Source information: The record is a 153-nucleotide RNA sequence from Rhododendron williamsianum, which matches "MIR168 microRNA precursor family" in Rfam. The base pairs follow the family's consensus structure, which was predicted with WAR. NCBI's taxonomy places the organism under Eukaryota, Streptophytina, Magnoliopsida, Ericoideae, Rhododendron.
RNA sequence: GUUGCGGCGGUCUCUAAUUCGCUUGGUGCAGGUCGGGACCGCUUCGCUGGCGGCGGCGGCAGCGAUUGAUUUUGCGUGCGAAUAAAUUUUUUUAAAAUUUGGAGGCGAAUACGGUCCCGCCUUGCAUCAACUGAAUCGGAGACCGCGGCGAAU
Numbered sequence: 001g002u003u004g005c006g007g008c009g010g011u012c013u014c015u016a017a018u019u020c021g022c023u024u025g026g027u028g029c030a031g032g033u034c035g036g037g038a039c040c041g042c043u044u045c046g047c048u049g050g051c052g053g054c055g056g057c058g059g060c061a062g063c064g065a066u067u068g069a070u071u072u073u074g075c076g077u078g079c080g081a082a083u084a085a086a087u088u089u090u091u092u093u094a095a096a097a098u099u100u101g102g103a104g105g106c107g108a109a110u111a112c113g114g115u116c117c118c119g120c121c122u123u124g125c126a127u128c129a130a131c132u133g134a135a136u137c138g139g140a141g142a143c144c145g146c147g148g149c150g151a152a153u
Stems, first nucleotide, its partner, number of pairs: 013140002017136004023130010034119005040113002